Source information: The record is a 68-nucleotide RNA from Gillisia hiemivivida, which matches "DUF805 RNA" in Rfam. Rfam classes the family as a cis-regulatory element.
RNA sequence: UAAAAGUGGAGACUAGAAAUCACUUAAAAAACGGGGCGAAACCGAAAAGCCAAAUGAUUAGGAAAUUA
Numbered sequence: 001u002a003a004a005a006g007u008g009g010a011g012a013c014u015a016g017a018a019a020u021c022a023c024u025u026a027a028a029a030a031a032c033g034g035g036g037c038g039a040a041a042c043c044g045a046a047a048a049g050c051c052a053a054a055u056g057a058u059u060a061g062g063a064a065a066u067u068a
Base pairs, nucleotide, nucleotide: 006023007022008021009020035051036050037049042062043061
The match comes from Rfam's covariance-model search (80 bits). Its Rfam clan is "DUF805 clan".